[Rfam]
RNA sequence: UUUUCGUUGGUUUGCGUGAGGGAUAGUAGUGGAGCUCUUUUUUAUUUUUUCAAUUGUCCCGCCUUUAAAGGCGGGGCAAUUGAAAAAAUAAAAAAAGCGGGAACGGAUAGCCCGACCCGUA
Numbered sequence: 001u002u003u004u005c006g007u008u009g010g011u012u013u014g015c016g017u018g019a020g021g022g023a024u025a026g027u028a029g030u031g032g033a034g035c036u037c038u039u040u041u042u043u044a045u046u047u048u049u050u051c052a053a054u055u056g057u058c059c060c061g062c063c064u065u066u067a068a069a070g071g072c073g074g075g076g077c078a079a080u081u082g083a084a085a086a087a088a089u090a091a092a093a094a095a096a097g098c099g100g101g102a103a104c105g106g107a108u109a110g111c112c113c114g115a116c117c118c119g120u121a
Base pairs, nucleotide, nucleotide: 020113021112022111024109025108029104030103034098035097036096040093041092042091043090044089045088046087047086048085049084050083051082052081053080054079055078056077057076058075059074060073061072062071063070064069
Dot-bracket structure: ...................(((.((...((...(((...(((((((((((((((((((((((((....)))))))))))))))))))))))))..)))....))...)).)))........
The family of this 121-nucleotide RNA from Flavobacterium restrictum is "Flavo-1 RNA". The family's RNA type in Rfam is small RNA.